[Rfam]
The record is a 101-nucleotide RNA sequence from Heyndrickxia sporothermodurans, which matches "Guanidine-I riboswitch aptamer" in Rfam. The pairing is the family consensus, mapped onto this sequence.

RNA sequence: GAGUAGGUUUUCUAGGGUUCCGCGUAUUUUUUGACGGUCUGGUCCGAGAGAAAGCCCACAGUUAUUUAGCUGUGUCACGGAAGGAUAAAAGCCUGGGAGAU
Numbered sequence: 001g002a003g004u005a006g007g008u009u010u011u012c013u014a015g016g017g018u019u020c021c022g023c024g025u026a027u028u029u030u031u032u033g034a035c036g037g038u039c040u041g042g043u044c045c046g047a048g049a050g051a052a053a054g055c056c057c058a059c060a061g062u063u064a065u066u067u068a069g070c071u072g073u074g075u076c077a078c079g080g081a082a083g084g085a086u087a088a089a090a091g092c093c094u095g096g097g098a099g100a101u
Base pairs, nucleotide, nucleotide: 007055008054009053010052011051012050015045016044020042021041022039023036024035025034057074058073059072060071061070062069063068076096078099082094083093084092